[Rfam]
RNA sequence: AAGCGUUCUCAGGGCGGGGUGAAAUUCCCCACCGGCGGUGAUGGUUGGCAUGCCCAACACAAGCCCGCGAGCGCCCGUUGCCUGUCGGCAGCGGGGUCAGCAGACCUGGUGUGACUCCAGGGCCGACGGUUCGGUGCUGCCGUGUUUCAUGGCGCACUCACAGUCCGGAUGAAAGAGAGCGUGG
Numbered sequence: 001a002a003g004c005g006u007u008c009u010c011a012g013g014g015c016g017g018g019g020u021g022a023a024a025u026u027c028c029c030c031a032c033c034g035g036c037g038g039u040g041a042u043g044g045u046u047g048g049c050a051u052g053c054c055c056a057a058c059a060c061a062a063g064c065c066c067g068c069g070a071g072c073g074c075c076c077g078u079u080g081c082c083u084g085u086c087g088g089c090a091g092c093g094g095g096g097u098c099a100g101c102a103g104a105c106c107u108g109g110u111g112u113g114a115c116u117c118c119a120g121g122g123c124c125g126a127c128g129g130u131u132c133g134g135u136g137c138u139g140c141c142g143u144g145u146u147u148c149a150u151g152g153c154g155c156a157c158u159c160a161c162a163g164u165c166c167g168g169a170u171g172a173a174a175g176a177g178a179g180c181g182u183g184g
Stems, first nucleotide, its partner, number of pairs: 003182008017029003033125002035068004063123002071101002105121005127167003